[Rfam]
Background:
A member of the RNA family "Mammalian CPEB3 ribozyme" from Alligator mississippiensis, 76 nucleotides long. Lineage of the source: Eukaryota > Metazoa > Teleostomi > Crocodylia > Alligator. The match comes from Rfam's covariance-model search (36 bits). About the family: The mammalian CPEB3 ribozyme is a self cleaving RNA located in the second intron of the CPEB3 gene which belongs to a family of genes regulating messenger RNA polyadenylation. This ribozyme is highly conserved and found only in mammals. The CPEB3 ribozyme is structurally and biochemically related to the human hepatitis delta virus (HDV) ribozyme and the HDV ribozyme is proposed to have arisen from the human transcriptome. There is currently only one other known self cleaving ribozyme in mammals, the CoTC motif.

RNA sequence: GUUGUAAGUUCAAGGCCAUAGCAGAAGUGCUCAUGGUGUAACCCUGUCAUAUUCCAGUGAAUCUGCAAAUUCUACU
Numbered sequence: 001g002u003u004g005u006a007a008g009u010u011c012a013a014g015g016c017c018a019u020a021g022c023a024g025a026a027g028u029g030c031u032c033a034u035g036g037u038g039u040a041a042c043c044c045u046g047u048c049a050u051a052u053u054c055c056a057g058u059g060a061a062u063c064u065g066c067a068a069a070u071u072c073u074a075c076u
Stems, first nucleotide, its partner, number of pairs: 014043002020076002023073004027039003048065002051062004